Source information
This 392-nucleotide RNA sequence from Mucilaginibacter sp. belongs to the Rfam family "Bacterial RNase P class A".
Nucleotides: 392
Base pairs, nucleotide, nucleotide: 002387004385005384006383007382008381010379011377012341013340014339015338016337017336018335020038021037022036023035024034025033026032043375044374045373047372048371049370050369051368052217053216054215055214064213065212066211067210068209069083070082071081072080073079084101085099086098087097088096102208103207108206109205110202111201112200125148126147127144128143129142131140132139133138156174157173158172159171160170161169177196178195179194180193181192182191183190184189221298222297223296224295231289232288233287234286235285236284264280306323307322308321309320310319311318312317
Number, partner (000 for none) and nucleotide at each position: 001000c002387u003000u004385g005384c006383a007382a008381a009000a010379c011377g012341u013340u014339c015338u016337a017336u018335c019000g020038c021037u022036g023035c024034c025033a026032u027000c028000u029000u030000g031000u032026a033025u034024g035023g036022c037021g038020g039000a040000g041000g042000a043375a044374a045373g046000u047372c048371c049370g050369g051368g052217c053216a054215a055214c056000a057000c058000a059000g060000a061000g062000c063000a064213u065212c066211c067210u068209g069083c070082u071081u072080c073079c074000u075000a076000a077000c078000g079073g080072g081071a082070a083069g084101g085099c086098g087097c088096c089000g090000g091000c092000a093000g094000c095000c096088g097087g098086u099085g100000a101084c102208a103207g104000c105000a106000a107000a108206g109205u110202g111201c112200c113000a114000c115000a116000g117000a118000a119000a120000u121000u122000a123000u124000a125148c126147c127144g128143c129142c130000a131140c132139g133138a134000u135000u136000u137000a138133u139132c140131g141000g142129g143128g144127u145000a146000a147126g148125g149000g150000u151000g152000a153000a154000a155000a156174c157173g158172u159171g160170a161169g162000g163000u164000a165000a166000g167000a168000g169161c170160u171159c172158a173157c174156g175000g176000c177196a178195u179194u180193u181192c182191c183190g184189g185000g186000c187000g188000a189184c190183c191182g192181g193180a194179g195178a196177u197000g198000a199000c200112g201111g202110u203000a204000a205109a206108c207103c208102u209068c210067a211066g212065g213064a214055g215054u216053u217052g218000a219000a220000a221298a222297a223296c224295c225000a226000a227000a228000u229000a230000g231289g232288u233287u234286c235285a236284g237000g238000a239000a240000g241000c242000g243000g244000a245000g246000c247000u248000g249000c250000u251000c252000g253000c254000u255000c256000c257000c258000g259000c260000a261000g262000u263000u264280u265000g266000c267000c268000g269000c270000a271000a272000g273000g274000c275000a276000a277000a278000u279000c280264a281000c282000u283000c284236c285235u286234g287233g288232a289231u290000g291000g292000g293000u294000a295224g296223g297222u298221u299000g300000u301000u302000u303000a304000a305000a306323c307322c308321u309320g310319u311318c312317a313000g314000c315000a316000a317312u318311g319310g320309c321308a322307g323306g324000g325000c326000c327000a328000g329000a330000u331000u332000a333000a334000u335018g336017a337016u338015a339014g340013a341012a342000g343000u344000u345000g346000c347000c348000c349000g350000u351000u352000a353000a354000a355000c356000g357000g358000c359000a360000a361000u362000a363000c364000a365000g366000a367000a368051c369050c370049c371048g372047g373045c374044u375043u376000a377011c378000a379010g380000a381008u382007u383006u384005g385004c386000u387002g388000c389000u390000g391000a392000a
Taxonomically the source falls in Mucilaginibacter (Bacteria, Pseudomonadati, Sphingobacteriia, Sphingobacteriaceae).